This 84-nucleotide RNA from Aplosporella prunicola belongs to the Rfam family "bZIP non canonical Hac1/Xbp1 intron". The source organism's lineage runs through Eukaryota, Fungi, Pezizomycotina, dothideomyceta and Aplosporella prunicola.
RNA sequence: ACUGUUGCCGAACCCGACUUGGCACAACAUUCUGCAGCAAUGUUGUGUUGGUUUGACCUGCAGUGUCAGUCGGGUUCCAGCAGU
Numbered sequence: 001a002c003u004g005u006u007g008c009c010g011a012a013c014c015c016g017a018c019u020u021g022g023c024a025c026a027a028c029a030u031u032c033u034g035c036a037g038c039a040a041u042g043u044u045g046u047g048u049u050g051g052u053u054u055g056a057c058c059u060g061c062a063g064u065g066u067c068a069g070u071c072g073g074g075u076u077c078c079a080g081c082a083g084u
Stems, first nucleotide, its partner, number of pairs: 001084007010077005026044006053069005
The base pairs follow the family's consensus structure, which was predicted with RNAfold. For this family Rfam cites "Conserved RNA structures in the non-canonical Hac1/Xbp1 intron" (Hooks and Griffiths-Jones, RNA Biol, 2011). By type it is a small RNA. About the family: bZIP intron RNA is a non-canonical intron that was first reported in HAC1 gene in yeast and XBP1 gene in Metazoa. The match comes from Rfam's covariance-model search (50 bits).